[Rfam]
RNA sequence: GACUCGAUGAUAUUCUAGCCUGUAAAGGCAAUAUACGCUAUUCUGAAUCACAUAUGUUGUCAUUCAUUCAUGAAUUUUUAAUGAGAGUC
Numbered sequence: 001g002a003c004u005c006g007a008u009g010a011u012a013u014u015c016u017a018g019c020c021u022g023u024a025a026a027g028g029c030a031a032u033a034u035a036c037g038c039u040a041u042u043c044u045g046a047a048u049c050a051c052a053u054a055u056g057u058u059g060u061c062a063u064u065c066a067u068u069c070a071u072g073a074a075u076u077u078u079u080a081a082u083g084a085g086a087g088u089c
Base pairs, nucleotide, nucleotide: 001089002088003087004086005085
RNA: Small nucleolar RNA U54
Organism: Beta vulgaris